[Rfam]
RNA sequence: ACAAAUUCCCCGAUGAAGGAACUCCGGGAAAAUAGAAUAAAAAUAAUUAAGAUAGUCAUAGUAUGAACGAAUAUGUUUCAAU
Number, nucleotide and partner (000 for none) at each position: 001a000002c000003a000004a000005a000006u000007u030008c000009c028010c027011c026012g025013a000014u000015g022016a000017a000018g000019g000020a000021a000022c015023u000024c000025c012026g011027g010028g009029a000030a007031a000032a000033u000034a000035g000036a000037a000038u000039a000040a000041a000042a000043a000044u000045a000046a000047u000048u000049a000050a000051g000052a000053u000054a000055g000056u000057c000058a000059u000060a000061g000062u000063a000064u000065g078066a077067a076068c075069g000070a000071a000072u000073a000074u000075g068076u067077u066078u065079c000080a000081a000082u000